[Rfam]
RNA: C. elegans snoRNA ceN33
Organism: Caenorhabditis brenneri
Nucleotides: 118
Base pairs, nucleotide, nucleotide: 010117011116012115013114
Number, partner (000 for none) and nucleotide at each position: 001000c002000a003000a004000g005000c006000c007000u008000c009000c010117u011116g012115g013114c014000g015000c016000u017000g018000c019000u020000a021000a022000a023000g024000u025000c026000a027000g028000g029000g030000u031000a032000a033000c034000a035000u036000a037000g038000g039000c040000u041000g042000g043000c044000g045000a046000u047000g048000a049000u050000u051000g052000a053000g054000a055000g056000a057000u058000u059000c060000c061000c062000a063000c064000a065000c066000g067000c068000a069000a070000u071000u072000u073000c074000u075000a076000c077000u078000g079000a080000u081000c082000c083000g084000c085000a086000u087000g088000a089000a090000g091000g092000u093000u094000g095000a096000a097000c098000u099000u100000c101000c102000u103000u104000g105000g106000a107000c108000g109000u110000c111000u112000g113000a114013g115012c116011c117010g118000c